[Rfam]
RNA: mir-193 microRNA precursor family
RNA sequence: UCUCAGAUACGGGAUUUUGGGGGCUAGAUGAGUUUAAUCACAAUCCAACUGGCCCGCAAAGUCCCGCUUCUGGCA
Numbered sequence: 001u002c003u004c005a006g007a008u009a010c011g012g013g014a015u016u017u018u019g020g021g022g023g024c025u026a027g028a029u030g031a032g033u034u035u036a037a038u039c040a041c042a043a044u045c046c047a048a049c050u051g052g053c054c055c056g057c058a059a060a061g062u063c064c065c066g067c068u069u070c071u072g073g074c075a
Stems, first nucleotide, its partner, number of pairs: 003073005010066004015061005021055004026050002029047002